[Rfam]
RNA sequence: GUCAACUACCACCCGUCUGUAGAGGCGGUGGCUUGCAAAAGCCAUAGUUGACCAGCCUAAGGAACUGACUCGAAGGACAAGGGGAUGAUGUUCCUACGUUAUCCCUGUCAGGGCACUCUGGGGUGCGUCCCAAGCUCCAGACACUGCCGUGCAGGCUUAAACAGUCCUGAGUGGUAGGGACAGUGGCCUGCACACAACAAGCAGGGAUAACAUUGGCGAUGGGAGAUGCAG
Numbered sequence: 001g002u003c004a005a006c007u008a009c010c011a012c013c014c015g016u017c018u019g020u021a022g023a024g025g026c027g028g029u030g031g032c033u034u035g036c037a038a039a040a041g042c043c044a045u046a047g048u049u050g051a052c053c054a055g056c057c058u059a060a061g062g063a064a065c066u067g068a069c070u071c072g073a074a075g076g077a078c079a080a081g082g083g084g085a086u087g088a089u090g091u092u093c094c095u096a097c098g099u100u101a102u103c104c105c106u107g108u109c110a111g112g113g114c115a116c117u118c119u120g121g122g123g124u125g126c127g128u129c130c131c132a133a134g135c136u137c138c139a140g141a142c143a144c145u146g147c148c149g150u151g152c153a154g155g156c157u158u159a160a161a162c163a164g165u166c167c168u169g170a171g172u173g174g175u176a177g178g179g180a181c182a183g184u185g186g187c188c189u190g191c192a193c194a195c196a197a198c199a200a201g202c203a204g205g206g207a208u209a210a211c212a213u214u215g216g217c218g219a220u221g222g223g224a225g226a227u228g229c230a231g
Base pairs, nucleotide, nucleotide: 001052002051003050004049005048006047007046008045010030011029014027016023017022031042032041033040034039055217056216057215059213060095061094062093063092064091098211099210100209101208102207103206104205105204106203107202108201113147114146117141118140119139120138121137122136123135124134125227128224129223130222131221132220149193150192151191152190153189154188155187156186157185161184162183164181165180166179167178168177170175
Background
This 231-nucleotide RNA sequence from Fervidicola ferrireducens belongs to the Rfam family "HNH endonuclease-associated RNA and ORF (HEARO) RNA". The literature on the family includes a 2009 paper in Nature by Weinberg et al., "Exceptional structured noncoding RNAs revealed by bacterial metagenome analysis". Lineage of the source: Bacteria > Clostridia > Thermosediminibacterales > Thermosediminibacteraceae > Fervidicola. The base pairs follow the family's consensus structure, which is taken from published work.